The family of this 181-nucleotide RNA from Astyanax mexicanus is "Small nucleolar RNA SNORA23". The family has 9 seed sequences and 1,092 matches in Rfam 15.1. Gene Ontology terms of the family: RNA processing and nucleolus. Pairs were carried over by alignment from the consensus structure, which was predicted with RNAalifold. The members of this family belong to the H/ACA class of snoRNAs which are thought to guide the sites of modification of uridines to pseudouridines. This family includes human snoRNA ACA23 (SNORA23) and mouse snoMBI-1. ACA23 is predicted to guide the pseudouridylation of residue U3737 and U4331 of 28S rRNA. The literature on the family includes a 2001 paper in EMBO J by Huttenhofer et al., "RNomics: an experimental approach that identifies 201 candidates for novel, small, non-messenger RNAs in mouse". The family's RNA type in Rfam is H/ACA-box small nucleolar RNA. It scores 117 bits against the family's covariance model.

[Rfam]
RNA sequence: GGUGAGCGGUGUGCGUGGUGUUGGUCUGCGUUUAGUGCUGCUUCCAGUCUGUGUCUUACAGAAUGUGUGGCAGCGCUCACACCACAUCUGCAGCCACAGAGCCACAGGAGAUCAUAGUACUGGCUUAGUGAUGUCUCUGAGACUGUAUACCACUGGCCAGCCUCCAAUCUCUCCAACAAAG
Numbered sequence: 001g002g003u004g005a006g007c008g009g010u011g012u013g014c015g016u017g018g019u020g021u022u023g024g025u026c027u028g029c030g031u032u033u034a035g036u037g038c039u040g041c042u043u044c045c046a047g048u049c050u051g052u053g054u055c056u057u058a059c060a061g062a063a064u065g066u067g068u069g070g071c072a073g074c075g076c077u078c079a080c081a082c083c084a085c086a087u088c089u090g091c092a093g094c095c096a097c098a099g100a101g102c103c104a105c106a107g108g109a110g111a112u113c114a115u116a117g118u119a120c121u122g123g124c125u126u127a128g129u130g131a132u133g134u135c136u137c138u139g140a141g142a143c144u145g146u147a148u149a150c151c152a153c154u155g156g157c158c159a160g161c162c163u164c165c166a167a168u169c170u171c172u173c174c175a176a177c178a179a180a181g
Base pairs, nucleotide, nucleotide: 013091014090015089030082031081033079035077036075037074038073039072040071041070044067045065046064050060051059052058107174108173109172110171111170120160121159122158123157124156125155127154128153129152130151132145133143134142135141136140